A member of the RNA family "mir-210 microRNA precursor family" from Brenthis ino, 100 nucleotides long. The literature on the family includes a 2005 paper in Proc Natl Acad Sci U S A by Cai et al., "Kaposi's sarcoma-associated herpesvirus expresses an array of viral microRNAs in latently infected cells".
RNA sequence: ACGAAGCCCAAAACAACUAUUGGUCACUGCACAGGACUAGUAAACGUAUUAUACUCUUGUGCGUGUUCCAAUAGUUAUUAUGGGUGCUUCAUAAUCUUCA
Numbered sequence: 001a002c003g004a005a006g007c008c009c010a011a012a013a014c015a016a017c018u019a020u021u022g023g024u025c026a027c028u029g030c031a032c033a034g035g036a037c038u039a040g041u042a043a044a045c046g047u048a049u050u051a052u053a054c055u056c057u058u059g060u061g062c063g064u065g066u067u068c069c070a071a072u073a074g075u076u077a078u079u080a081u082g083g084g085u086g087c088u089u090c091a092u093a094a095u096c097u098u099c100a
Stems, first nucleotide, its partner, number of pairs: 006085005012079001015076008025065002028063006035056002